This 45-nucleotide sequence from Terriglobus roseus belongs to the Rfam family "Acido-Lenti-1 RNA". Rfam classes the family as a small RNA. It scores 40 bits against the family's covariance model. Lineage of the source: Bacteria > Pseudomonadati > Acidobacteriota > Terriglobia > Terriglobus roseus.
RNA sequence: CCCAGGGCUUUGCCCUGGGCUAGGAUAGCUCGCGCCUUCAGCGCG
Number, nucleotide and partner (000 for none) at each position: 001c019002c018003c017004a016005g015006g014007g013008c012009u000010u000011u000012g008013c007014c006015c005016u004017g003018g002019g001020c000021u000022a000023g000024g000025a000026u000027a000028g000029c000030u000031c000032g044033c043034g042035c041036c000037u000038u000039c000040a000041g035042c034043g033044c032045g000